[Rfam]
RNA sequence: GGGAGAGAUGAUGAUGAGUGAUUAGUUUCCCUAUUGGUUUGAUAGCCGACAUGAUGGCUACCAUUGUAUUAGCUCUAUCUGAUCCCUC
Numbered sequence: 001g002g003g004a005g006a007g008a009u010g011a012u013g014a015u016g017a018g019u020g021a022u023u024a025g026u027u028u029c030c031c032u033a034u035u036g037g038u039u040u041g042a043u044a045g046c047c048g049a050c051a052u053g054a055u056g057g058c059u060a061c062c063a064u065u066g067u068a069u070u071a072g073c074u075c076u077a078u079c080u081g082a083u084c085c086c087u088c
Base pairs, nucleotide, nucleotide: 002087003086005084041061044059045058046057047056

The family of this 88-nucleotide sequence from Musa acuminata is "Small nucleolar RNA Z102/R77". The family's RNA type in Rfam is C/D-box small nucleolar RNA. The source organism's lineage runs through Eukaryota, Streptophytina, Musaceae, Musa and Musa acuminata. Rfam links the family to the GO terms RNA processing and nucleolus.